[Rfam]
RNA sequence: GUCAUCGUGAGGUGGGGGCGGGAGGAAGCCCGAGGCGAGACCCCUGCACCGAGGGACACGAACCGCGUAGGAGGCGUUUCGGUCGGGUGAGCCAGCACGCGAUGGUGAAGCCCGUCACCGCCAAGAAGGCCGGGGCGUAAACGCGGGCGUAGGGGGACAGCGGCUGUU
Numbered sequence: 001g002u003c004a005u006c007g008u009g010a011g012g013u014g015g016g017g018g019c020g021g022g023a024g025g026a027a028g029c030c031c032g033a034g035g036c037g038a039g040a041c042c043c044c045u046g047c048a049c050c051g052a053g054g055g056a057c058a059c060g061a062a063c064c065g066c067g068u069a070g071g072a073g074g075c076g077u078u079u080c081g082g083u084c085g086g087g088u089g090a091g092c093c094a095g096c097a098c099g100c101g102a103u104g105g106u107g108a109a110g111c112c113c114g115u116c117a118c119c120g121c122c123a124a125g126a127a128g129g130c131c132g133g134g135g136c137g138u139a140a141a142c143g144c145g146g147g148c149g150u151a152g153g154g155g156g157a158c159a160g161c162g163g164c165u166g167u168u
Stems, first nucleotide, its partner, number of pairs: 002015005028168001030166001032164001035161002041155007049147001063146006074138003078134007085113004091106004